[Rfam]
RNA: c-di-AMP riboswitch aptamer (ydaO/yuaA leader)
Organism: Paenibacillus beijingensis
RNA sequence: UUGAAACAAUCGCUGAAUUUUCCAAUAACGGGAAAACGGGGGAACCAACUGCGGUGAAGAUUUUUCAUCGCUUGGGGUGAAUCGGCACACAAUGCCGUAGGGCGAUCUAGACGCCCGAAUCCGUCAGCUAACCUCGUAAGCGUCUUUAGAGAGGGUGA
Numbered sequence: 001u002u003g004a005a006a007c008a009a010u011c012g013c014u015g016a017a018u019u020u021u022c023c024a025a026u027a028a029c030g031g032g033a034a035a036a037c038g039g040g041g042g043a044a045c046c047a048a049c050u051g052c053g054g055u056g057a058a059g060a061u062u063u064u065u066c067a068u069c070g071c072u073u074g075g076g077g078u079g080a081a082u083c084g085g086c087a088c089a090c091a092a093u094g095c096c097g098u099a100g101g102g103c104g105a106u107c108u109a110g111a112c113g114c115c116c117g118a119a120u121c122c123g124u125c126a127g128c129u130a131a132c133c134u135c136g137u138a139a140g141c142g143u144c145u146u147u148a149g150a151g152a153g154g155g156u157g158a
Base pairs, nucleotide, nucleotide: 011142012141013140014139018035019034020033021032022031023030036137037136038135039134040133041132046074047073075122076121077120083097084096085095086094100116101115102114103113